[Rfam]
RNA sequence: UGUGCCGGGGUGGGCAGGCCCUGCGGCCAAUUAACCCUAAUGGCGGCCGCGCCCCUCACGCUCGCCCGCUGUUUUACUCGCUGACUUUCAGCGGGCAAAGGGAGCGGCCCAGGGAAAGGGGGUGGGGGAAAAGAGUUCCGGCCUCAAAAAAAGCCAGCGAGGGGGAUCCACACCCCGGCCCACCCUGGGGUCCCUGUCCCUUCUCCGCAACCGGGGAUGCUCCCGCCCUCGCCCCUCGUGGAGGCCGCGGUCGGCGGGCUCAGCGCCGCUGCCGCCGCGAAGAGUUCGUCUCUGUCAGCCUCGGCGGCGGCCGGGAGCAGGGGGCCGGCGCGCCCACCCUGGGCAGCCGGGGGACCCCAGCAGAACAAAACGGGCGCGGCGCCGCUGGGCGCUGAGCAGCCGCCGCCCCCUGAGACGUGGGGUGCGCGGCCGGCGCCGCCCCGACACCC
Numbered sequence: 001u002g003u004g005c006c007g008g009g010g011u012g013g014g015c016a017g018g019c020c021c022u023g024c025g026g027c028c029a030a031u032u033a034a035c036c037c038u039a040a041u042g043g044c045g046g047c048c049g050c051g052c053c054c055c056u057c058a059c060g061c062u063c064g065c066c067c068g069c070u071g072u073u074u075u076a077c078u079c080g081c082u083g084a085c086u087u088u089c090a091g092c093g094g095g096c097a098a099a100g101g102g103a104g105c106g107g108c109c110c111a112g113g114g115a116a117a118g119g120g121g122g123u124g125g126g127g128g129a130a131a132a133g134a135g136u137u138c139c140g141g142c143c144u145c146a147a148a149a150a151a152a153g154c155c156a157g158c159g160a161g162g163g164g165g166a167u168c169c170a171c172a173c174c175c176c177g178g179c180c181c182a183c184c185c186u187g188g189g190g191u192c193c194c195u196g197u198c199c200c201u202u203c204u205c206c207g208c209a210a211c212c213g214g215g216g217a218u219g220c221u222c223c224c225g226c227c228c229u230c231g232c233c234c235c236u237c238g239u240g241g242a243g244g245c246c247g248c249g250g251u252c253g254g255c256g257g258g259c260u261c262a263g264c265g266c267c268g269c270u271g272c273c274g275c276c277g278c279g280a281a282g283a284g285u286u287c288g289u290c291u292c293u294g295u296c297a298g299c300c301u302c303g304g305c306g307g308c309g310g311c312c313g314g315g316a317g318c319a320g321g322g323g324g325c326c327g328g329c330g331c332g333c334c335c336a337c338c339c340u341g342g343g344c345a346g347c348c349g350g351g352g353g354a355c356c357c358c359a360g361c362a363g364a365a366c367a368a369a370a371c372g373g374g375c376g377c378g379g380c381g382c383c384g385c386u387g388g389g390c391g392c393u394g395a396g397c398a399g400c401c402g403c404c405g406c407c408c409c410c411u412g413a414g415a416c417g418u419g420g421g422g423u424g425c426g427c428g429g430c431c432g433g434c435g436c437c438g439c440c441c442c443g444a445c446a447c448c449c
Stems, first nucleotide, its partner, number of pairs: 006178001008176003014169001017167001019165004051105002054102002064096008080158004085153001086151003185360007211328001219318007229307005246279005252274004257267003281293004372441004378437006400429004407422004